[Rfam]
RNA sequence: UGGCGCCCGAACAGGGACCUGGAAACGAGGGACUCCGUGAGAAGAGGGCGUAAAGGGCCGAUCGACGCUACUUGAGGCGAAAGGAGUCAAACUCUUCCGAUCACCGCGGGAACCUGCCGCGUCAGAAUCGAAGGUAAGUGACGCGUUCGAAAUGGGACAAGAAUUAAGCCAACAUCAAAUAUAUGUAGGACAAUUAAAAGAGGCUUUAAAGAUAUGAGGAGUAAAGGUUAAAGGUAGUGAUUUGUUUAAAUUUUUUGAUUUGUAAAAGACACUCAGGCCCAAAUGCAAUAUGACCCU
Numbered sequence: 001u002g003g004c005g006c007c008c009g010a011a012c013a014g015g016g017a018c019c020u021g022g023a024a025a026c027g028a029g030g031g032a033c034u035c036c037g038u039g040a041g042a043a044g045a046g047g048g049c050g051u052a053a054a055g056g057g058c059c060g061a062u063c064g065a066c067g068c069u070a071c072u073u074g075a076g077g078c079g080a081a082a083g084g085a086g087u088c089a090a091a092c093u094c095u096u097c098c099g100a101u102c103a104c105c106g107c108g109g110g111a112a113c114c115u116g117c118c119g120c121g122u123c124a125g126a127a128u129c130g131a132a133g134g135u136a137a138g139u140g141a142c143g144c145g146u147u148c149g150a151a152a153u154g155g156g157a158c159a160a161g162a163a164u165u166a167a168g169c170c171a172a173c174a175u176c177a178a179a180u181a182u183a184u185g186u187a188g189g190a191c192a193a194u195u196a197a198a199a200g201a202g203g204c205u206u207u208a209a210a211g212a213u214a215u216g217a218g219g220a221g222u223a224a225a226g227g228u229u230a231a232a233g234g235u236a237g238u239g240a241u242u243u244g245u246u247u248a249a250a251u252u253u254u255u256u257g258a259u260u261u262g263u264a265a266a267a268g269a270c271a272c273u274c275a276g277g278c279c280c281a282a283a284u285g286c287a288a289u290a291u292g293a294c295c296c297u
Base pairs, nucleotide, nucleotide: 006031007030008029035048036047038045091135092134093133095131096130101127102125105121106120107119108118109117143158146156147155148154149153165208166207167206168204169203170202215257216256217255218254219253220252221251222250225243226242227241228240229239230238266297268295